The record is an 86-nucleotide RNA sequence from Trypanosoma conorhini, which matches "Small nucleolar RNA TBR6" in Rfam. NCBI's taxonomy places the organism under Eukaryota, Euglenozoa, Kinetoplastea, Trypanosomatida, Trypanosoma. On this family, see Dunbar et al., Nucleic Acids Res 2000: "The genes for small nucleolar RNAs in Trypanosoma brucei are organized in clusters and are transcribed as a polycistronic RNA". About the family: TBR6 was one of seventeen snoRNAs identified in Trypanosoma brucei. Together with TBR2, TBR12 and TBR4 it is a part of snoRNA gene cluster that is tandemly repeated. These 4 snoRNA genes are transcribed as a polycistronic RNA transcript. The match comes from Rfam's covariance-model search (51 bits). It is annotated as a C/D-box small nucleolar RNA. Pairs were carried over by alignment from the consensus structure, which was predicted with RNAfold.

RNA sequence: CGCCGUGGCAGUGAUGACCCCAACUUGUUUGCACAUUUGCCGACCCUCGUGAGCGACCCGCAGGAAUCUAGGAAGAUUGUUUCGUU
Numbered sequence: 001c002g003c004c005g006u007g008g009c010a011g012u013g014a015u016g017a018c019c020c021c022a023a024c025u026u027g028u029u030u031g032c033a034c035a036u037u038u039g040c041c042g043a044c045c046c047u048c049g050u051g052a053g054c055g056a057c058c059c060g061c062a063g064g065a066a067u068c069u070a071g072g073a074a075g076a077u078u079g080u081u082u083c084g085u086u
Base pairs, nucleotide, nucleotide: 001055002054003053011034012033013032016029017028018027040051041049042048